[Rfam]
RNA sequence: UGUUGCUUAUUCUCCUGUUUAUAAAGCCCGGCUUAAGUGCUUAUAAAAAAUGAAUAAAGCACAAAACGGUGCCUGUCGUCCUUCAGACCGAUAAGCGUGCCUUCGGGUCGUUAUCAAGCAUUGGACGCAACGUUGAGUUAGGCACCAUCUA
Number, nucleotide and partner (000 for none) at each position: 001u000002g000003u000004u000005g060006c059007u057008u056009a055010u054011u053012c052013u000014c000015c000016u000017g000018u000019u046020u045021a044022u043023a042024a041025a000026g040027c039028c000029c000030g000031g000032c000033u000034u000035a000036a000037g000038u000039g027040c026041u024042u023043a022044u021045a020046a019047a000048a000049a000050a000051u000052g012053a011054a010055u009056a008057a007058a000059g006060c005061a000062c000063a000064a000065a000066a000067c000068g146069g145070u144071g143072c142073c141074u140075g000076u000077c127078g126079u125080c124081c123082u000083u000084c000085a000086g000087a000088c000089c000090g115091a114092u113093a112094a111095g000096c000097g000098u000099g000100c000101c000102u000103u000104c000105g000106g000107g000108u000109c000110g000111u094112u093113a092114u091115c090116a000117a000118g000119c000120a000121u000122u000123g081124g080125a079126c078127g077128c000129a139130a138131c137132g000133u000134u000135g000136a000137g131138u130139u129140a074141g073142g072143c071144a070145c069146c068147a000148u000149c000150u000151a000

The family of this 151-nucleotide sequence from Izhakiella capsodis is "Glm Y RNA activator of glmS mRNA". Its Rfam clan is "Glm clan". Rfam classes the family as a small RNA. From the family's description: This family consists of a number of bacterial RNA genes of around 167 bases in length. The tke1 RNA gene is present in Escherichia coli, Shigella flexneri, Yersinia pestis and Salmonella species where it is found between the yfhK and purL genes. The function of this RNA is unknown.